[Rfam]
RNA sequence: UUUGCCCUUGUCUGCUGGGCUUUAAAUGCAGAAUAGGCAGUGCGCAGAGUGGCUGCGCGUUUACAAAUAAAAUCUGGCCGAAGGAGAGA
Numbered sequence: 001u002u003u004g005c006c007c008u009u010g011u012c013u014g015c016u017g018g019g020c021u022u023u024a025a026a027u028g029c030a031g032a033a034u035a036g037g038c039a040g041u042g043c044g045c046a047g048a049g050u051g052g053c054u055g056c057g058c059g060u061u062u063a064c065a066a067a068u069a070a071a072a073u074c075u076g077g078c079c080g081a082a083g084g085a086g087a088g089a
Stems, first nucleotide, its partner, number of pairs: 005019003011032004034081001036079003042058005
Rfam assigns this 89-nucleotide sequence to the family "GP20-a RNA".
Pairs were carried over by alignment from the consensus structure, which is taken from published work.